Rfam assigns this 129-nucleotide sequence from Arabis alpina to the family "Small nucleolar RNA U19".
The family's RNA type in Rfam is H/ACA-box small nucleolar RNA.
A search with the family's covariance model found it, with a score of 63 bits.
Rfam 15.1 lists 421 matches to the family in 201 species.
For this family Rfam cites "Experimental RNomics: identification of 140 candidates for small non-messenger RNAs in the plant Arabidopsis thaliana" (Marker et al., Curr Biol, 2002).
Gene Ontology terms of the family: nucleolus and RNA processing.
Lineage of the source: Eukaryota > Tracheophyta > malvids > Arabideae > Arabis.
RNA sequence: AAUUGAGCUUAGGUAGGAGGCAUAAAUGAAUCUUAAUCAUCAAUACUUUACUGUAUUGUUUUGAUUUUGAGGAGAAGCUUUUGCUUUUGCUCUCAAAUUAAGCUUCUUCUCAAGUAGCCUCAUACAUUC
Numbered sequence: 001a002a003u004u005g006a007g008c009u010u011a012g013g014u015a016g017g018a019g020g021c022a023u024a025a026a027u028g029a030a031u032c033u034u035a036a037u038c039a040u041c042a043a044u045a046c047u048u049u050a051c052u053g054u055a056u057u058g059u060u061u062u063g064a065u066u067u068u069g070a071g072g073a074g075a076a077g078c079u080u081u082u083g084c085u086u087u088u089g090c091u092c093u094c095a096a097a098u099u100a101a102g103c104u105u106c107u108u109c110u111c112a113a114g115u116a117g118c119c120u121c122a123u124a125c126a127u128u129c
Base pairs, nucleotide, nucleotide: 004022005021008019009018010017036065037064038063039062043059044058045057047055066114067113068112069111071109072108073107074106075105076104077103078102079101